[Rfam]
Group II catalytic intron D1-D4-1: an 83-nucleotide RNA from Heliobacterium mobile. The literature on the family includes a 2001 paper in EMBO J by Chu et al., "Control of branch-site choice by a group II intron". The pairing is the family consensus, mapped onto this sequence. Rfam describes the family as follows. Group II introns are found in rRNA, tRNA and mRNA of organelles in fungi, plants and protists, and also in mRNA in bacteria.
RNA sequence: GAAUCACGGUUGAAACAAGAUUUAUCAUGAGAAGUCAGCAGAGACCAUAGUACCCGAUGAAGUCGACGUCAUCGGGGAAGGGU
Numbered sequence: 001g002a003a004u005c006a007c008g009g010u011u012g013a014a015a016c017a018a019g020a021u022u023u024a025u026c027a028u029g030a031g032a033a034g035u036c037a038g039c040a041g042a043g044a045c046c047a048u049a050g051u052a053c054c055c056g057a058u059g060a061a062g063u064c065g066a067c068g069u070c071a072u073c074g075g076g077g078a079a080g081g082g083u
Stems, first nucleotide, its partner, number of pairs: 001022002004020002008016001010014001035042002044083003053076006